[Rfam]
RNA sequence: UUUGAGAGAUUUCCUCGGCAGUUAACUGCUGCCGGAUUUGAGAAAAUUUCGGCAGUUAACUGCCGAAGAAAAC
Number, nucleotide and partner (000 for none) at each position: 001u000002u000003u000004g000005a000006g000007a000008g000009a000010u000011u000012u069013c068014c000015u066016c065017g064018g063019c062020a061021g060022u059023u058024a057025a056026c055027u054028g053029c052030u051031g050032c000033c000034g000035g000036a000037u000038u000039u000040g000041a000042g000043a000044a000045a000046a000047u000048u000049u000050c031051g030052g029053c028054a027055g026056u025057u024058a023059a022060c021061u020062g019063c018064c017065g016066a015067a000068g013069a012070a000071a000072a000073c000